[Rfam]
RNA sequence: CUUACAGAGUUUAUUGGCAUUCUGUCCACCUCCAAUCUGCAGAAACUACAAGUUGUUUUACUUUCUGGAGGUGGGCAUACUGCCAACUGAGCUCUGUUGG
Numbered sequence: 001c002u003u004a005c006a007g008a009g010u011u012u013a014u015u016g017g018c019a020u021u022c023u024g025u026c027c028a029c030c031u032c033c034a035a036u037c038u039g040c041a042g043a044a045a046c047u048a049c050a051a052g053u054u055g056u057u058u059u060a061c062u063u064u065c066u067g068g069a070g071g072u073g074g075g076c077a078u079a080c081u082g083c084c085a086a087c088u089g090a091g092c093u094c095u096g097u098u099g100g
Stems, first nucleotide, its partner, number of pairs: 011090001014086006023077011
Dot-bracket structure: ..........(..((((((...(((((((((((.................................)))))))))))...))))))...)..........
A member of the RNA family "MIR394 microRNA precursor family" from Populus suaveolens, 100 nucleotides long.
On this family, see Jones-Rhoades and Bartel, Mol Cell 2004: "Computational identification of plant microRNAs and their targets, including a stress-induced miRNA".
The family's consensus secondary structure was predicted with WAR.
The sequence is in the family's curated seed alignment.